Description: The record is a 51-nucleotide RNA from Avibacterium paragallinarum, which matches "L31-Gammaproteobacteria ribosomal protein leader" in Rfam. Clan: Ribosomal Protein L31 Leader clan. By type it is a cis-regulatory leader. The sequence is in the family's curated seed alignment. Lineage of the source: Bacteria > Pseudomonadati > Gammaproteobacteria > Pasteurellales > Avibacterium.
[Rfam]
RNA sequence: CACUCGGUGCUAAAUUCAGUUUUAGAGAGCGGAGUGGCUUCAAAUUGAGGU
Numbered sequence: 001c002a003c004u005c006g007g008u009g010c011u012a013a014a015u016u017c018a019g020u021u022u023u024a025g026a027g028a029g030c031g032g033a034g035u036g037g038c039u040u041c042a043a044a045u046u047g048a049g050g051u
Base pairs, nucleotide, nucleotide: 001036002035003034004033005032007030008029010025011024012023013022014021
Dot-bracket structure: (((((.((.(((((......)))))...)).)))))...............